The family of this 74-nucleotide RNA from Anopheles gambiae is "mir-34 microRNA precursor family".
The literature on the family includes a 2003 paper in Science by Lim et al., "Vertebrate microRNA genes".
The family is grouped with related families in Rfam's "mir-34 clan".
The family has 113 seed sequences and 2,256 matches in Rfam 15.1.
Gene Ontology terms of the family: RISC complex and miRNA-mediated post-transcriptional gene silencing.
Rfam describes the family as follows. Human mir-34a was discovered computationally and later experimentally verified. The mature sequence is excised from the 5' arm of the hairpin.

RNA sequence: ACGCUCUGGCAGUGUGGUUAGCUGGUUGUGUGGUUUUCCCAUCUUCACAGCCACUAUCCGCCCUGCCGUCGCGC
Dot-bracket structure: .(((...(..((.((((.(((.((((((((...............))))))))))).)))).)).)....))).